[Rfam]
The record is a 112-nucleotide RNA from Planomicrobium sp. CPCC 101110, which matches "BsrF" in Rfam. Pairs were carried over by alignment from the consensus structure, which was predicted with WAR.
RNA sequence: GCGAUGAGCUCGUUUGCGUAAGACGGACAAGCAUUCCUUUAGGGAACACGUUGUGGAGCGUGGCUUGGAACGCCGCAAAUUAUCGAGAACACCUUGCCUUUGGGCAAGGUGU
Number, nucleotide and partner (000 for none) at each position: 001g000002c000003g000004a000005u000006g000007a000008g000009c000010u000011c000012g000013u000014u078015u077016g076017c075018g074019u000020a000021a000022g000023a000024c072025g071026g000027a000028c067029a066030a065031g064032c063033a000034u000035u044036c043037c000038u000039u000040u000041a000042g000043g036044g035045a000046a000047c062048a061049c000050g059051u058052u057053g000054u000055g000056g000057a052058g051059c050060g000061u048062g047063g032064c031065u030066u029067g028068g000069a000070a000071c025072g024073c000074c018075g017076c016077a015078a014079a000080u000081u000082a000083u000084c000085g000086a000087g000088a000089a112090c111091a110092c109093c108094u107095u106096g105097c104098c000099u000100u000101u000102g000103g000104g097105c096106a095107a094108g093109g092110u091111g090112u089
It is annotated as a small RNA. It scores 59 bits against the family's covariance model.